Record summary: This 153-nucleotide RNA sequence from a Streptosporangiales bacterium belongs to the Rfam family "c-di-AMP riboswitch aptamer (ydaO/yuaA leader)". The base pairs follow the family's consensus structure.

RNA sequence: CCGGUUGAACCGCCGAGUCUCGUGGUGUCACCAGCACCAGGAGAGCCGGGGACCCAUCGUGCGUGGGGUGAAUCCGUGGCGCGUAGCGCAGCGGUAGGGCGGCUCCCGGCCCGAACCCGUCAGCUAACCCGGUAGGCGGCCAAGGGAGAGGAG
Number, nucleotide and partner (000 for none) at each position: 001c000002c000003g000004g000005u000006u000007g000008a000009a000010c000011c138012g137013c136014c135015g000016a000017g000018u044019c043020u042021c000022g000023u000024g000025g000026u000027g000028u000029c000030a000031c000032c000033a000034g000035c000036a000037c000038c000039a000040g000041g000042a020043g019044a018045g133046c132047c131048g130049g129050g128051g000052a000053c000054c000055c065056a064057u000058c000059g000060u000061g000062c000063g000064u056065g055066g118067g117068g116069u000070g000071a000072a000073u000074c094075c093076g092077u091078g000079g000080c000081g000082c000083g000084u000085a000086g000087c000088g000089c000090a000091g077092c076093g075094g074095u000096a000097g112098g111099g110100c109101g000102g000103c000104u000105c000106c000107c000108g000109g100110c099111c098112c097113g000114a000115a000116c068117c067118c066119g000120u000121c000122a000123g000124c000125u000126a000127a000128c050129c049130c048131g047132g046133u045134a000135g014136g013137c012138g011139g000140c000141c000142a000143a000144g000145g000146g000147a000148g000149a000150g000151g000152a000153g000
Rfam links the family to the GO terms regulation of gene expression and cyclic-di-AMP binding.
The match comes from Rfam's covariance-model search (82 bits).